[Rfam]
RNA: TPP riboswitch aptamer (THI element)
RNA sequence: AAAAGAGCCAGCGGGAGCUUGUGUGACAGGCUGAGAGGAAGAUAGAUCUUCGACCGUACCUGAUUUGGGUAAUGCCAACGGAGGGAUUGUGAUCUGAGAGCGU
Numbered sequence: 001a002a003a004a005g006a007g008c009c010a011g012c013g014g015g016a017g018c019u020u021g022u023g024u025g026a027c028a029g030g031c032u033g034a035g036a037g038g039a040a041g042a043u044a045g046a047u048c049u050u051c052g053a054c055c056g057u058a059c060c061u062g063a064u065u066u067g068g069g070u071a072a073u074g075c076c077a078a079c080g081g082a083g084g085g086a087u088u089g090u091g092a093u094c095u096g097a098g099a100g101c102g103u
Base pairs, nucleotide, nucleotide: 007090008089010087011057012056013055014054017031018030019029020028021027038051039050040049041048042047059084060083061082065078066077067076068075